RNA sequence: UUACUGGACGCUUUAUUUAUUGAACUGUUCUGUCACUCUCUGACAGAUAACAAUUCGUUCUUUGACAGAGAGGGACCAAACAGUAGGUAGCUAAAGCGUCCACUAAC
Numbered sequence: 001u002u003a004c005u006g007g008a009c010g011c012u013u014u015a016u017u018u019a020u021u022g023a024a025c026u027g028u029u030c031u032g033u034c035a036c037u038c039u040c041u042g043a044c045a046g047a048u049a050a051c052a053a054u055u056c057g058u059u060c061u062u063u064g065a066c067a068g069a070g071a072g073g074g075a076c077c078a079a080a081c082a083g084u085a086g087g088u089a090g091c092u093a094a095a096g097c098g099u100c101c102a103c104u105a106a107c
Stems, first nucleotide, its partner, number of pairs: 001106003005102002011096005017090005024084005029069007049059003
Record summary:
Shown here is a 107-nucleotide RNA from Plutella xylostella, a member of the family "mir-8517 microRNA precursor family". The organism belongs to Plutella, within Eukaryota. A search with the family's covariance model found it, with a score of 88 bits. Rfam links the family to the GO terms miRNA-mediated post-transcriptional gene silencing and RISC complex. Pairs were carried over by alignment from the consensus structure, which was predicted with RNAalifold.